[Rfam]
Rfam assigns this 76-nucleotide RNA sequence from Prevotella brunnea to the family "L13-Bacteroidia ribosomal protein leader".

Nucleotides: 076
Base pairs, nucleotide, nucleotide: 001021002020003019004018005017006016034070035069036068037067038066040064041063042062044061045060046059047058048057049056
Number, partner (000 for none) and nucleotide at each position: 001021g002020a003019g004018g005017g006016c007000g008000u009000u010000c011000u012000u013000a014000g015000a016006g017005c018004c019003c020002u021001c022000a023000g024000c025000g026000u027000g028000g029000g030000u031000g032000u033000g034070u035069u036068a037067a038066u039000a040064g041063u042062g043000a044061u045060g046059g047058c048057u049056u050000u051000u052000g053000g054000c055000c056049g057048a058047g059046c060045c061044g062042c063041a064040c065000g066038g067037u068036u069035a070034g071000a072000g073000a074000a075000u076000c
The family's consensus secondary structure is taken from published work.